[Rfam]
RNA sequence: AAUCAUAUGCUUGUCUCAAAGAUUAAGCCAUGCAUGUCUAAGUACAUGCCGAAAUAAGGCGAAACCGCGAAUGGCUCAUUAAAUCAGUUAUGGUUCCUUAGAUCGUUUCUUCCUACUUGGAUAACUGUGGCAAUUCUAGAGCUAAUACAUGCAGUGAGCCUGGAGCCCUUUGGGUAACGGGUGCUUUUAUUAGACCAAGAUCGAUCGGGUUUCGGCCCGUAUUGUGUGGUGACUCUGGAUAACUUUGUGCUGAUCGCAUGGCCACGAGCCGGCGACGUUUCUUUCAAGUGUCUGCCUUAUCAACUUUCGAUGGUAGGUUACUUGCUUACCAUGGUUGUUACGGGUAACGGAGAAUCAGGGUUCGAUUCCGGAGAGGGAGCCUGAGAAACGGCUACCACAUCCAAGGAAGGCAGCAGGCGCGCAAAUUACCCACUCCCGGCACGGGGAGGUAGUGACGAAAAAUAACAAUACGGGACUCUUUUGAGGCCCCGUAAUUGAAAUGAGUACACUCUAAAUCCUUUAACGAGGAUCAAUUGGAGGGCAAGUCUGGUGCCAGCAGCCGCGGUAAUUCCAGCUCCAAUAGCGUAUACUAAAGCUGCU
Dot-bracket structure: (.(.(((((((..(.((..((.....(((.(((..((....((....((.........))...)).))......(((.......(((..((..((....(((.............(.((.....((.(((.....))).))......)).)......(((((..((.......))..)))))....(((((........((((....(((....))).........)))).......)))))...........((((.((((.....))))))))....)))...))))..))).(((....(((....((((((((.......)))))))))))......)))...((((((((....))))...))))))).((.(((..........))).)).(.((....)).)...)))))).).....(.(((...(((((...))))).)))).)...)).).....(((((((((.(((....)))..)))))).)))......(((.(...........)).)).........((((((.......((((.....((....)).......)))))))))).)))))))).).........
Background: The family of this 600-nucleotide part of an RNA from Rhipicephalus sanguineus is "Eukaryotic small subunit ribosomal RNA". Rfam links the family to the GO terms structural constituent of ribosome and ribosome.